The record is a 113-nucleotide RNA from Coregonus sp. 'balchen', which matches "U5 spliceosomal RNA" in Rfam. The match comes from Rfam's covariance-model search (67 bits).
[Rfam]
RNA sequence: CGACUCUGGUUUCCACUAAGCACAAGCCUUUCGCCUUUUACUAAAGACUUCCGUGGAGAGGAACACUUACGAGUUCAAUGUAUUUUUGGAGGGGCUUUGCUUCUGGCAGAGCC
Numbered sequence: 001c002g003a004c005u006c007u008g009g010u011u012u013c014c015a016c017u018a019a020g021c022a023c024a025a026g027c028c029u030u031u032c033g034c035c036u037u038u039u040a041c042u043a044a045a046g047a048c049u050u051c052c053g054u055g056g057a058g059a060g061g062a063a064c065a066c067u068u069a070c071g072a073g074u075u076c077a078a079u080g081u082a083u084u085u086u087u088g089g090a091g092g093g094g095c096u097u098u099g100c101u102u103c104u105g106g107c108a109g110a111g112c113c
Base pairs, nucleotide, nucleotide: 003074004073005072006071009064010063011062012061013056014055015054024050025049026048028046029045030044031043094112095111096110097109098108099107
Rfam classes the family as a spliceosomal small nuclear RNA. For this family Rfam cites "The uRNA database" (Zwieb, Nucleic Acids Res, 1997). Rfam 15.1 lists 28,527 matches to the family in 2,489 species.